[Rfam]
The family of this 96-nucleotide RNA sequence from Acinetobacter baumannii is "Guanidine-I riboswitch aptamer".
About the family: This family represents a conserved RNA structure found upstream of the ykkC and yxkD genes in Bacillus subtilis and related genes in other bacteria. The function of this family is unclear although it has been suggested that it may function to switch on efflux pumps and detoxification systems in response to harmful environmental molecules.
NCBI's taxonomy places the organism under Bacteria, Pseudomonadati, Moraxellales, Moraxellaceae, Acinetobacter baumannii.
The base pairs follow the family's consensus structure.

RNA sequence: UCAAAAGUGAUCUAGGGUUCCGAUACUUACAGUAUGUCUGGACCGAGAGUUCACGGUUCCUAGCGAACUACACGGAGGGAUAAAAGCCCGGGAGGA
Numbered sequence: 001u002c003a004a005a006a007g008u009g010a011u012c013u014a015g016g017g018u019u020c021c022g023a024u025a026c027u028u029a030c031a032g033u034a035u036g037u038c039u040g041g042a043c044c045g046a047g048a049g050u051u052c053a054c055g056g057u058u059c060c061u062a063g064c065g066a067a068c069u070a071c072a073c074g075g076a077g078g079g080a081u082a083a084a085a086g087c088c089c090g091g092g093a094g095g096a
Stems, first nucleotide, its partner, number of pairs: 007054004012049001015044002020041002022038001023035005055069005071091001073094001077089003